This 108-nucleotide RNA sequence from Pyrus ussuriensis x Pyrus communis belongs to the Rfam family "Plastid-psbA-1 3UTR RNA". It scores 81 bits against the family's covariance model.
[Rfam]
RNA sequence: UUGAAUCAUAAAUGGAUGAGACUUUGGUCUUAAUAUAUAUGAGUUCUUGAAAGUAAAAGAGUAAUAAAAAAUUUCUUGUUAUAUCAAGAGGUUUGUUAUUGCCCCUUU
Number, nucleotide and partner (000 for none) at each position: 001u000002u016003g000004a000005a013006u012007c000008a000009u000010a000011a000012a006013u005014g000015g000016a002017u000018g000019a000020g000021a000022c000023u000024u000025u000026g000027g000028u000029c000030u000031u000032a000033a000034u000035a000036u000037a000038u000039a000040u000041g000042a000043g000044u000045u000046c000047u000048u000049g000050a000051a000052a000053g000054u000055a108056a107057a106058a000059g104060a000061g102062u101063a100064a099065u098066a097067a096068a000069a094070a093071a092072u000073u090074u089075c088076u087077u086078g000079u000080u000081a000082u000083a000084u000085c000086a077087a076088g075089a074090g073091g000092u071093u070094u069095g000096u067097u066098a065099u064100u063101g062102c061103c000104c059105c000106u057107u056108u055
Plastid psbA-1 is a non-coding RNA (ncRNA) present in plastids. It was identified in inverted repeat sequences in the 3 prime untranslate region (3UTR) of photosystem II quinone-binding protein (psbA).
Pairs were carried over by alignment from the consensus structure, which was predicted with LocARNA.
Clan: Plastid-psbA 3UTR RNA clan.